[Rfam]
RNA sequence: UGCACCAUGUGCACUUAACCCACUGCGCUACUGCCUGACCCCCAACCUUUAAAAUACCACUGGGCGGUAGCGCAGUGGGUUAAGUGCACAUGGUGCA
Numbered sequence: 001u002g003c004a005c006c007a008u009g010u011g012c013a014c015u016u017a018a019c020c021c022a023c024u025g026c027g028c029u030a031c032u033g034c035c036u037g038a039c040c041c042c043c044a045a046c047c048u049u050u051a052a053a054a055u056a057c058c059a060c061u062g063g064g065c066g067g068u069a070g071c072g073c074a075g076u077g078g079g080u081u082a083a084g085u086g087c088a089c090a091u092g093g094u095g096c097a
Stems, first nucleotide, its partner, number of pairs: 001097009011087008021077017

Notes: A member of the RNA family "mir-130 microRNA precursor family" from Erinaceus europaeus, 97 nucleotides long. Rfam links the family to the GO terms miRNA-mediated post-transcriptional gene silencing and RISC complex.